[Rfam]
MIR530 microRNA precursor family: a 157-nucleotide sequence from Gossypium australe. It scores 87 bits against the family's covariance model. Taxonomically the source falls in Gossypium (Eukaryota, eudicotyledons, Malvaceae, Malvoideae). The literature on the family includes a 2008 paper in Plant J by Lu et al., "Stress-responsive microRNAs in Populus".
RNA sequence: GCUAAGAUGUAGCUUUUAUCUGCAUUUGCACCUGCACCUUCUUGUUUGUUUCAGCUAUGUCAGAAAAAACAAAACACUGUUAGAUAUGUUUUGUGUGGUGUGGUUGGAGACCAAACAAAGAGGUGCGGAUGCAGUUGCAGGUGAAUGCCAUUUUAGC
Numbered sequence: 001g002c003u004a005a006g007a008u009g010u011a012g013c014u015u016u017u018a019u020c021u022g023c024a025u026u027u028g029c030a031c032c033u034g035c036a037c038c039u040u041c042u043u044g045u046u047u048g049u050u051u052c053a054g055c056u057a058u059g060u061c062a063g064a065a066a067a068a069a070c071a072a073a074a075c076a077c078u079g080u081u082a083g084a085u086a087u088g089u090u091u092u093g094u095g096u097g098g099u100g101u102g103g104u105u106g107g108a109g110a111c112c113a114a115a116c117a118a119a120g121a122g123g124u125g126c127g128g129a130u131g132c133a134g135u136u137g138c139a140g141g142u143g144a145a146u147g148c149c150a151u152u153u154u155a156g157c
Base pairs, nucleotide, nucleotide: 001157002156003155004154005153006152007151008150009149012148013147015145016144017143018142019141020140021139022138023137024136026134027133028132029131030130032128033127034126035125036124037123038122039121044070045069046068047067049066050065051064052063054061